The record is a 69-nucleotide RNA from Bombyx mori, which matches "mir-3389 microRNA precursor family" in Rfam. The family has 2 seed sequences and 1,299 matches in Rfam 15.1. The family's consensus secondary structure was predicted with RNAalifold. Rfam links the family to the GO terms miRNA-mediated post-transcriptional gene silencing and RISC complex.

[Rfam]
RNA sequence: CCAGUCGCAGCCGAUGCUCCACAGGAGAGGACCAAGGACUGAUCCUAGCGGAACACCGCGCUCGACGAG
Numbered sequence: 001c002c003a004g005u006c007g008c009a010g011c012c013g014a015u016g017c018u019c020c021a022c023a024g025g026a027g028a029g030g031a032c033c034a035a036g037g038a039c040u041g042a043u044c045c046u047a048g049c050g051g052a053a054c055a056c057c058g059c060g061c062u063c064g065a066c067g068a069g
Stems, first nucleotide, its partner, number of pairs: 004066003007061002010059002013056001015055002018052003024049001027046001029045003033041002